[Rfam]
RNA sequence: CGGUCGGCAGUUCACCCAGGCGUCGCCUCCCCUGUUGGGGUGCUAAACCUGCCU
Numbered sequence: 001c002g003g004u005c006g007g008c009a010g011u012u013c014a015c016c017c018a019g020g021c022g023u024c025g026c027c028u029c030c031c032c033u034g035u036u037g038g039g040g041u042g043c044u045a046a047a048c049c050u051g052c053c054u
Base pairs, nucleotide, nucleotide: 002016003015004014029040030039031038032037
RNA: COG3860 RNA
Organism: Pararhodospirillum photometricum